[Rfam]
RNA sequence: CAGCACUUGAUACUAACCGAGCUAUCUAUGUCCUAGCCUAUGUCAAAGGCUUGUGAUGUGUUGUGAUCGCUGGGUUUAAGAAGUGCAAUAUUAAAACAAGCCAUGAGUCUUUUAAGCCCAGGGUGUAAAGCCACACUCUGAGUUAUAACUCAAAGGCACAACU
Numbered sequence: 001c002a003g004c005a006c007u008u009g010a011u012a013c014u015a016a017c018c019g020a021g022c023u024a025u026c027u028a029u030g031u032c033c034u035a036g037c038c039u040a041u042g043u044c045a046a047a048g049g050c051u052u053g054u055g056a057u058g059u060g061u062u063g064u065g066a067u068c069g070c071u072g073g074g075u076u077u078a079a080g081a082a083g084u085g086c087a088a089u090a091u092u093a094a095a096a097c098a099a100g101c102c103a104u105g106a107g108u109c110u111u112u113u114a115a116g117c118c119c120a121g122g123g124u125g126u127a128a129a130g131c132c133a134c135a136c137u138c139u140g141a142g143u144u145a146u147a148a149c150u151c152a153a154a155g156g157c158a159c160a161a162c163u
Stems, first nucleotide, its partner, number of pairs: 003086006015076004020071003024067003027060006033053001035051005100157003121136001123134003137154001139152005
A member of the RNA family "Small Cajal body specific RNA 1" from Echinops telfairi, 163 nucleotides long. For this family Rfam cites "Cajal body-specific small nuclear RNAs: a novel class of 2'-O-methylation and pseudouridylation guide RNAs" (Darzacq et al., EMBO J, 2002). The organism belongs to Echinops, within Eukaryota. Pairs were carried over by alignment from the consensus structure, which was predicted with RNAalifold. Gene Ontology terms of the family: RNA processing, Cajal body and nucleolus. The sequence is in the family's curated seed alignment. scaRNAs are a specific class of small nuclear RNAs which localise to the Cajal bodies and guide the modification of RNA polymerase II transcribed spliceosomal RNAs U1, U2, U4, U5 and U12. It is annotated as a small Cajal body RNA.